RNA sequence: GGGAAAUUCGCACCAGAACCGCGCGGCAGGAGCGGGGGACCCAGGUAAGUGCCGUACCGCAUCCAGCGGCCCGGCUAGGGGUGAAGCCAUGCCCGUAGCGCCCUCGCGCACGGGAAUGGCCGGGCCACUCCAGCCCGAAUCCGACAGCUCACCUCGCAGGCGCUAGGAGAGGACAC
Number, nucleotide and partner (000 for none) at each position: 001g000002g000003g000004a000005a000006a000007u000008u000009c000010g000011c162012a000013c160014c159015a000016g000017a000018a000019c030020c029021g000022c000023g000024c000025g000026g000027c000028a000029g020030g019031a000032g157033c156034g155035g154036g153037g152038g000039a000040c000041c000042c078043a000044g000045g000046u000047a000048a000049g000050u000051g000052c000053c000054g000055u000056a000057c000058c000059g000060c000061a000062u000063c000064c000065a000066g000067c000068g000069g000070c000071c000072c000073g000074g000075c000076u000077a000078g042079g142080g141081g140082u000083g000084a000085a000086g000087c119088c118089a117090u116091g000092c000093c000094c000095g000096u000097a000098g000099c000100g000101c000102c000103c000104u000105c000106g000107c000108g000109c000110a000111c000112g000113g000114g000115a000116a090117u089118g088119g087120c000121c000122g136123g135124g134125c133126c000127a000128c000129u000130c000131c000132a000133g125134c124135c123136c122137g000138a000139a000140u081141c080142c079143g000144a000145c000146a000147g000148c000149u000150c000151a000152c037153c036154u035155c034156g033157c032158a000159g014160g013161c000162g011163c000164u000165a000166g000167g000168a000169g000170a000171g000172g000173a000174c000175a000176c000

About this RNA:
A member of the RNA family "c-di-AMP riboswitch aptamer (ydaO/yuaA leader)" from Streptomyces sp. A73, 176 nucleotides long. The pairing is the family consensus, mapped onto this sequence. Lineage of the source: Bacteria > Actinomycetota > Actinomycetes > Kitasatosporales > Streptomyces. A search with the family's covariance model found it, with a score of 53 bits.